Shown here is a 65-nucleotide RNA sequence from Carassius auratus, a member of the family "mir-33 microRNA precursor family". The match comes from Rfam's covariance-model search (73 bits).
RNA sequence: CUGUGGUGCAUUGUAGUUGCAUUGCAUGUGUCUCAACUGUGCAAUGUUCCUGCAGUGCAAUACAG
Numbered sequence: 001c002u003g004u005g006g007u008g009c010a011u012u013g014u015a016g017u018u019g020c021a022u023u024g025c026a027u028g029u030g031u032c033u034c035a036a037c038u039g040u041g042c043a044a045u046g047u048u049c050c051u052g053c054a055g056u057g058c059a060a061u062a063c064a065g
Stems, first nucleotide, its partner, number of pairs: 001065004006061001007059010019047001021045007